[Rfam]
RNA sequence: GACGUGGCCCGGGCCCCUCUGGCACGGCAGCGGCGAGAAGUCCUGUCGUGCGAUGUCGGACCACAUCG
Numbered sequence: 001g002a003c004g005u006g007g008c009c010c011g012g013g014c015c016c017c018u019c020u021g022g023c024a025c026g027g028c029a030g031c032g033g034c035g036a037g038a039a040g041u042c043c044u045g046u047c048g049u050g051c052g053a054u055g056u057c058g059g060a061c062c063a064c065a066u067c068g
Stems, first nucleotide, its partner, number of pairs: 006062002009059004022051008

Shown here is a 68-nucleotide sequence from Sphingobium indicum, a member of the family "terC RNA".
By type it is a cis-regulatory element.
The base pairs follow the family's consensus structure, which is taken from published work.
NCBI's taxonomy places the organism under Bacteria, Pseudomonadati, Pseudomonadota, Sphingobium, Sphingobium indicum.